[Rfam]
RNA sequence: AAAAUCCAACAUAAACAAAGUCUAGCCAACAGUUUAGAACAGACCACUAUGUUGCAUGAGGUAACGAGUGUAAUAGAGCUAGUGGAAUGGACAAUGCAGGGUACAACGAAAGUGAAGGGAUUGAGUCCCGAAAUACCUGAAGACAUAGAGGUCGACAUUUUCAUUUCGGUGGAAGACAGCAUGAGGGAUAAUGCAAAGGCGAGUUAUCACUCACUCUAUCGGGAUCUGAGACCG
Number, nucleotide and partner (000 for none) at each position: 001a000002a000003a000004a000005u000006c000007c000008a000009a000010c000011a000012u036013a035014a034015a033016c032017a000018a000019a000020g030021u029022c000023u202024a000025g200026c199027c000028a000029a021030c020031a000032g016033u015034u014035u013036a012037g000038a000039a000040c089041a088042g000043a000044c085045c084046a083047c082048u000049a000050u075051g074052u073053u072054g071055c070056a069057u068058g000059a000060g065061g000062u000063a000064a000065c060066g000067a000068g057069u056070g055071u054072a053073a052074u051075a050076g000077a000078g000079c000080u000081a000082g047083u046084g045085g044086a000087a000088u041089g040090g000091a000092c000093a000094a000095u000096g000097c000098a000099g000100g000101g000102u000103a000104c000105a000106a000107c000108g000109a000110a000111a000112g000113u000114g000115a000116a000117g000118g000119g000120a000121u000122u228123g226124a000125g225126u224127c223128c222129c221130g220131a000132a000133a000134u000135a000136c000137c000138u000139g000140a000141a000142g000143a000144c000145a219146u218147a217148g216149a215150g214151g177152u176153c175154g000155a000156c171157a170158u169159u168160u000161u000162c000163a000164u000165u000166u000167c000168g159169g158170u157171g156172g000173a000174a000175g153176a152177c151178a000179g000180c000181a000182u213183g212184a211185g210186g000187g208188a207189u206190a205191a204192u203193g000194c000195a000196a000197a000198g000199g026200c025201g000202a023203g192204u191205u190206a189207u188208c187209a000210c185211u184212c183213a182214c150215u149216c148217u147218a146219u145220c130221g129222g128223g127224a126225u125226c123227u000228g122229a000230g000231a000232c000233c000234g000
RNA: Group II catalytic intron D1-D4-6